[Rfam]
RNA sequence: ACAUAAUAAAGGCAAACCUGUGCGAAAGCCAGGGACGCAAAGUUUUCGGUCUAACGGGUAUGACCCCAGGAUAGCGAGACUGCUGAA
Numbered sequence: 001a002c003a004u005a006a007u008a009a010a011g012g013c014a015a016a017c018c019u020g021u022g023c024g025a026a027a028g029c030c031a032g033g034g035a036c037g038c039a040a041a042g043u044u045u046u047c048g049g050u051c052u053a054a055c056g057g058g059u060a061u062g063a064c065c066c067c068a069g070g071a072u073a074g075c076g077a078g079a080c081u082g083c084u085g086a087a
Stems, first nucleotide, its partner, number of pairs: 012038002017033004022029002041081004046077003049072003056066004